[Rfam]
RNA sequence: UUUCACUUGGGAAGCGAUGAUCCCUGCCUCAGUACACGGUCACCUCAGGGCAGGGGGAGCCAGUGGUGAGCCCGGCCCCAUAGGAG
Numbered sequence: 001u002u003u004c005a006c007u008u009g010g011g012a013a014g015c016g017a018u019g020a021u022c023c024c025u026g027c028c029u030c031a032g033u034a035c036a037c038g039g040u041c042a043c044c045u046c047a048g049g050g051c052a053g054g055g056g057g058a059g060c061c062a063g064u065g066g067u068g069a070g071c072c073c074g075g076c077c078c079c080a081u082a083g084g085a086g
Base pairs, nucleotide, nucleotide: 001086002085003084004083007080009078010077011076014060015059022055023054024053025052026051027050028049030048038073039072040069041068042067043066044065
RNA: c-di-GMP-II-GCG riboswitch aptamer